[Rfam]
RNA sequence: CCUCCGCCCUCCCCGCACAGGAGGGUGGACCGAGGUGCCGGCGCUCUCUGCCCUGACUGCGACGGGACCUCUCCCAACGGCCACGCGGGACCGCACACCCUUCCCCUGCCAGGGGCGGGGAGACCCCGUGGCCGUAGCAACUCCGGGCUGCGGUGCCGGACGGGUUGAGGGUCCCGUCGCGGCGC
Numbered sequence: 001c002c003u004c005c006g007c008c009c010u011c012c013c014c015g016c017a018c019a020g021g022a023g024g025g026u027g028g029a030c031c032g033a034g035g036u037g038c039c040g041g042c043g044c045u046c047u048c049u050g051c052c053c054u055g056a057c058u059g060c061g062a063c064g065g066g067a068c069c070u071c072u073c074c075c076a077a078c079g080g081c082c083a084c085g086c087g088g089g090a091c092c093g094c095a096c097a098c099c100c101u102u103c104c105c106c107u108g109c110c111a112g113g114g115g116c117g118g119g120g121a122g123a124c125c126c127c128g129u130g131g132c133c134g135u136a137g138c139a140a141c142u143c144c145g146g147g148c149u150g151c152g153g154u155g156c157c158g159g160a161c162g163g164g165u166u167g168a169g170g171g172u173c174c175c176g177u178c179g180c181g182g183c184g185c
Stems, first nucleotide, its partner, number of pairs: 003029004008024005032071005038065003043060002045056002077135007087126003140154003144150002159178006

This 185-nucleotide RNA sequence from Streptomyces scopuliridis belongs to the Rfam family "Streptomyces sRNA scr5239". The literature on the family includes a 2015 paper in PLoS One by Vockenhuber et al., "Identification of metE as a second target of the sRNA scr5239 in Streptomyces coelicolor". The match comes from Rfam's covariance-model search (120 bits). NCBI's taxonomy places the organism under Bacteria, Bacillati, Actinomycetota, Streptomyces, Streptomyces scopuliridis. The family's RNA type in Rfam is small RNA. Its family is annotated with mRNA binding and negative regulation of translation in the Gene Ontology.